Shown here is an 83-nucleotide sequence from Cochlearius cochlearius, a member of the family "Small nucleolar RNA SNORD72".
NCBI's taxonomy places the organism under Eukaryota, Archelosauria, Dinosauria, Neoaves, Cochlearius.
From the family's description: snoRNA HBII-240 belongs to the CD family of snoRNAs.
It is annotated as a C/D-box small nucleolar RNA.
The match comes from Rfam's covariance-model search (46 bits).
Its family is annotated with RNA processing and nucleolus in the Gene Ontology.

RNA sequence: CACUUGUGAAUAAGACGUUUCUUACUAAAAAUGUCAGAUCAUACGAACUCUGUAGUGAUUUCAGUGUGUUACUGAGAUAAGCU
Numbered sequence: 001c002a003c004u005u006g007u008g009a010a011u012a013a014g015a016c017g018u019u020u021c022u023u024a025c026u027a028a029a030a031a032u033g034u035c036a037g038a039u040c041a042u043a044c045g046a047a048c049u050c051u052g053u054a055g056u057g058a059u060u061u062c063a064g065u066g067u068g069u070u071a072c073u074g075a076g077a078u079a080a081g082c083u
Stems, first nucleotide, its partner, number of pairs: 003081005